Shown here is a 67-nucleotide RNA sequence from Methylomagnum ishizawai, a member of the family "int-alpA RNA". The family has 167 seed sequences and 577 matches in Rfam 15.1. Taxonomically the source falls in Methylomagnum (Bacteria, Pseudomonadota, Methylococcales, Methylococcaceae). It is annotated as a small RNA. The family's consensus secondary structure is taken from published work. About the family: Acidobacteria (1 example), Planctomycetes (1 example), Proteobacteria.
RNA sequence: GCCGGGCCUAGGGUCGCUCCCGAAAGGCGAUAAGCCUGAAUCGCGCGGCCCGGCAUCUUAAUCAGGC
Numbered sequence: 001g002c003c004g005g006g007c008c009u010a011g012g013g014u015c016g017c018u019c020c021c022g023a024a025a026g027g028c029g030a031u032a033a034g035c036c037u038g039a040a041u042c043g044c045g046c047g048g049c050c051c052g053g054c055a056u057c058u059u060a061a062u063c064a065g066g067c
Stems, first nucleotide, its partner, number of pairs: 001054008011021003027044005034067006